[Rfam]
Shown here is a 113-nucleotide sequence from Alteribacillus persepolensis, a member of the family "SAM riboswitch aptamer (S box leader)". The base pairs follow the family's consensus structure, which is taken from published work.

RNA sequence: CUCUUAUCAUGAGAGGUGGAGGGACUGGCCCGUUGAAACCCAGCAACCGCCCGCAAUAUAAGCGGGAAAAGGUGCUAAAUCCUGCGAAGUGGACACACUUUGAAAGAUGAGAG
Numbered sequence: 001c002u003c004u005u006a007u008c009a010u011g012a013g014a015g016g017u018g019g020a021g022g023g024a025c026u027g028g029c030c031c032g033u034u035g036a037a038a039c040c041c042a043g044c045a046a047c048c049g050c051c052c053g054c055a056a057u058a059u060a061a062g063c064g065g066g067a068a069a070a071g072g073u074g075c076u077a078a079a080u081c082c083u084g085c086g087a088a089g090u091g092g093a094c095a096c097a098c099u100u101u102g103a104a105a106g107a108u109g110a111g112a113g
Stems, first nucleotide, its partner, number of pairs: 001113008013041001015040003021031003025084001027082002042076004047072002051066002080105001085102006